RNA: Bacterial RNase P class A
Nucleotides: 334
Base pairs, nucleotide, nucleotide: 001330002329003328004327005326006325007324008323009322010321011319012274013273014272015271016270017269018268020057021056023054024053025052028049029048030047031046032045033044034043035042062317063316064315066314067313068312069311070310071179072178073177074176078211079210080209081208083175084174085173086172087171088102089101090100091099092098103117104115105114106113107112118170119169123168124167125164126163127162139152140151141150142149183231184230185229186228193222194221195220196219197218198217204214205213206212238257239256240255241254242253243252244251245250
Number, partner (000 for none) and nucleotide at each position: 001330g002329a003328a004327g005326c006325a007324a008323g009322c010321c011319a012274g013273a014272c015271a016270g017269u018268c019000g020057c021056u022000g023054g024053u025052u026000g027000a028049u029048g030047u031046c032045a033044c034043g035042a036000u037000u038000u039000c040000g041000g042035u043034c044033g045032u046031g047030g048029c049028a050000a051000a052025g053024a054023c055000g056021g057020g058000a059000g060000g061000a062317a063316g064315g065000u066314c067313c068312g069311g070310a071179c072178u073177c074176c075000a076000u077000a078211g079210a080209g081208u082000a083175g084174g085173g086172u087171g088102a089101c090100g091099g092098u093000u094000a095000a096000u097000g098092g099091c100090c101089g102088u103117c104115c105114g106113c107112c108000g109000u110000g111000a112107g113106g114105c115104g116000a117103g118170g119169a120000a121000u122000a123168g124167g125164g126163c127162c128000a129000c130000a131000g132000a133000g134000a135000c136000g137000a138000g139152c140151g141150u142149a143000u144000u145000u146000a147000g148000u149142u150141a151140c152139g153000g154000u155000g156000a157000a158000a159000c160000g161000c162127g163126g164125u165000a166000a167124c168123c169119u170118c171087c172086a173085c174084c175083c176074g177073g178072a179071g180000c181000a182000a183231u184230u185229u186228c187000a188000a189000a190000u191000a192000g193222g194221c195220a196219c197218g198217c199000g200000u201000u202000g203000a204214u205213g206212u207000g208081a209080c210079u211078c212206g213205c214204g215000g216000a217198g218197c219196g220195u221194g222193c223000g224000g225000g226000u227000a228186g229185a230184a231183a232000g233000c234000u235000u236000g237000a238257g239256c240255c241254g242253u243252g244251g245250a246000g247000u248000a249000a250245u251244u252243c253242a254241c255240g256239g257238c258000c259000u260000a261000g262000a263000g264000g265000a266000a267000u268018g269017g270016c271015u272014g273013u274012c275000a276000u277000a278000a279000c280000g281000a282000a283000c284000g285000g286000g287000c288000u289000u290000g291000c292000c293000c294000g295000g296000g297000a298000g299000u300000c301000g302000u303000a304000a305000c306000a307000g308000a309000a310070u311069c312068c313067g314066g315064c316063c317062u318000a319011u320000c321010g322009g323008c324007u325006u326005g327004c328003u329002u330001c331000a332000c333000u334000u